[Rfam]
RNA sequence: CGGAUGAAUCAACUCCUAGCCCUGGUUCCUAAGUUGCCUUUCUGACGUCGUUCCCACAGAAACAAUAUGGAGCCCUGGCCGUGACCAUAAGUCACCAGGGUGCAUGGCAGAAAUGCCCGCAUCUCCCGUAUCUGGAAAGGUGUUAAAGGUGCUUCAAC
Numbered sequence: 001c002g003g004a005u006g007a008a009u010c011a012a013c014u015c016c017u018a019g020c021c022c023u024g025g026u027u028c029c030u031a032a033g034u035u036g037c038c039u040u041u042c043u044g045a046c047g048u049c050g051u052u053c054c055c056a057c058a059g060a061a062a063c064a065a066u067a068u069g070g071a072g073c074c075c076u077g078g079c080c081g082u083g084a085c086c087a088u089a090a091g092u093c094a095c096c097a098g099g100g101u102g103c104a105u106g107g108c109a110g111a112a113a114u115g116c117c118c119g120c121a122u123c124u125c126c127c128g129u130a131u132c133u134g135g136a137a138a139g140g141u142g143u144u145a146a147a148g149g150u151g152c153u154u155c156a157a158c
Base pairs, nucleotide, nucleotide: 003152011144012143013142015140016139019079020078021077024074025073026072027071028070029069033066034065035064036063081095082094083093084092085091098124099123100122101121102120103119106117107116108115109114125135126134

The record is a 158-nucleotide RNA from Rahnella aquatilis, which matches "Molybdenum/Tungsten riboswitch aptamer (Moco RNA motif)" in Rfam. NCBI's taxonomy places the organism under Bacteria, Pseudomonadati, Pseudomonadota, Rahnella, Rahnella aquatilis. The family's consensus secondary structure is taken from published work.